[Rfam]
Rfam assigns this 118-nucleotide sequence from Roseospira navarrensis to the family "ALIL pseudoknot". It scores 72 bits against the family's covariance model.

RNA sequence: CGCGUAUUUUGCCCAGGCGGAGCUCGACCGCCGGUUCAAGCGAUGAUCGGGUUUAUUGACGAUCAUCGGGACGUCCACGGGGGGACGUCCACGGGGGGACGUCCACGGGGUCGAGCCG
Numbered sequence: 001c002g003c004g005u006a007u008u009u010u011g012c013c014c015a016g017g018c019g020g021a022g023c024u025c026g027a028c029c030g031c032c033g034g035u036u037c038a039a040g041c042g043a044u045g046a047u048c049g050g051g052u053u054u055a056u057u058g059a060c061g062a063u064c065a066u067c068g069g070g071a072c073g074u075c076c077a078c079g080g081g082g083g084g085a086c087g088u089c090c091a092c093g094g095g096g097g098g099a100c101g102u103c104c105a106c107g108g109g110g111u112c113g114a115g116c117c118g
Stems, first nucleotide, its partner, number of pairs: 016032005078118003086113002089110002092107002095104003

The source organism's lineage runs through Bacteria, Pseudomonadati, Pseudomonadota, Rhodospirillales and Roseospira.